Description: Ascomycota telomerase RNA: a 211-nucleotide part of an RNA from Dactylonectria estremocensis.

RNA sequence: UCCCCCACAGUCCUCCGACUCUCGUUUUCCGCAAGGAAUGUCUAUUGCAGACCCCCCUCCCGGGCUAGUCAACCAUGAUAUGCCGCUCCCGAGCCUGUAUCAGGACCUCGUUAUGCCGCAGGUUACCCCAUCUGGUCUACACUGCCGUCCGUACGGGUCGGCCUAGCCCAGCCGGGGGAAUGAGUUUCGGAACUUAACCCUAAGAAGAUAU
Number, nucleotide and partner (000 for none) at each position: 001u000002c000003c000004c000005c000006c000007a000008c000009a194010g193011u192012c000013c000014u000015c190016c189017g188018a187019c000020u000021c000022u000023c000024g000025u000026u000027u000028u000029c000030c000031g000032c000033a000034a000035g000036g000037a000038a000039u000040g000041u000042c000043u000044a000045u000046u000047g000048c000049a000050g000051a000052c000053c000054c000055c000056c000057c000058u000059c000060c000061c000062g000063g000064g000065c000066u000067a000068g000069u000070c000071a000072a000073c000074c000075a000076u000077g000078a000079u000080a000081u000082g000083c000084c000085g000086c000087u000088c000089c000090c000091g000092a000093g000094c000095c000096u000097g000098u000099a000100u000101c000102a000103g000104g000105a000106c000107c000108u000109c000110g000111u000112u000113a000114u000115g000116c000117c000118g000119c000120a000121g000122g000123u000124u000125a000126c000127c000128c000129c000130a000131u000132c000133u000134g000135g000136u000137c000138u000139a000140c000141a000142c000143u000144g000145c000146c000147g000148u000149c000150c000151g000152u000153a000154c000155g000156g000157g000158u000159c000160g000161g000162c000163c000164u000165a000166g000167c000168c000169c000170a000171g000172c000173c000174g000175g000176g000177g000178g000179a000180a000181u000182g000183a000184g000185u000186u000187u018188c017189g016190g015191a000192a011193c010194u009195u000196a000197a000198c000199c000200c000201u000202a000203a000204g000205a000206a000207g000208a000209u000210a000211u000

Record summary: For this family Rfam cites "The common ancestral core of vertebrate and fungal telomerase RNAs" (Qi et al., Nucleic Acids Res, 2013).